[Rfam]
Annotation:
The family of this 119-nucleotide sequence from Moraxella sp. HMSC061H09 is "Glycine riboswitch aptamer".
RNA sequence: GUCUGAUUUUCAGGAGAGUGUAUUUUGAUGGUCUCAAAAUACCACCGAAGGCGUAAACGGCAUUGCUCUUAGCACUGCAUUCCCCAUAAUCGCUCAGGUAAAUGGACUGAAAAUUCUCG
Dot-bracket structure: .....((((((((......(((((((((.....))))))))).(((((..(((...(.............................)...))))).))).......)))))))).....

The family is grouped with related families in Rfam's "Glycine riboswitch clan". Lineage of the source: Bacteria > Pseudomonadati > Pseudomonadota > Gammaproteobacteria > Moraxella. A search with the family's covariance model found it, with a score of 57 bits.